The family of this 249-nucleotide part of an RNA from Metamycoplasma canadense is "Bacterial large subunit ribosomal RNA". The family's consensus secondary structure is taken from published work.

Nucleotides: 249
Base pairs, nucleotide, nucleotide: 001159002158003157004156005155006154007153008152011145012144013143014142017045018044019043020042021041022040023039047102048101049100050099051098055096056095057094062089063088064087065086066085067082068081069080070079071078072077106140107139108138113133114132115131116130117129163246166244167243168242169241170186171185172184173183174182191237192236193235194233195232196231197230198229200226201225207220208219209218210217211216
Number, partner (000 for none) and nucleotide at each position: 001159g002158g003157a004156a005155u006154a007153u008152u009000g010000a011145u012144g013143a014142g015000a016000g017045c018044u019043a020042c021041u022040c023039u024000u025000a026000g027000u028000a029000c030000g031000a032000g033000a034000g035000g036000a037000c038000c039023g040022g041021a042020g043019u044018g045017g046000a047102c048101g049100u050099a051098c052000c053000g054000a055096u056095g057094g058000u059000g060000u061000g062089c063088c064087a065086g066085u067082u068081g069080u070079u071078c072077c073000g074000c075000c076000a077072g078071g079070a080069g081068c082067a083000u084000a085066g086065c087064u088063g089062g090000g091000u092000a093000g094057c095056c096055a097000a098051g099050u100049a101048c102047g103000g104000c105000a106140g107139g108138g109000a110000u111000a112000a113133c114132c115131g116130c117129u118000g119000a120000a121000a122000g123000c124000a125000u126000c127000u128000a129117a130116g131115c132114g133113g134000g135000a136000a137000g138108c139107c140106c141000c142014c143013u144012c145011a146000a147000a148000g149000a150000u151000g152008a153007g154006u155005a156004u157003u158002c159001c160000c161000u162000a163246u164000u165000a166244a167243a168242u169241u170186c171185c172184u173183u174182a175000u176000a177000g178000a179000c180000u181000a182174u183173g184172a185171g186170g187000u188000u189000g190000a191237u192236a193235g194233g195232c196231u197230g198229g199000a200226g201225g202000u203000g204000u205000a206000a207220g208219u209218a210217u211216a212000g213000u214000a215000a216211u217210a218209u219208a220207u221000u222000c223000a224000g225201c226200u227000g228000a229198c230197c231196a232195g233194u234000a235193c236192u237191a238000a239000u240000a241169a242168a243167u244166u245000g246163a247000u248000u249000g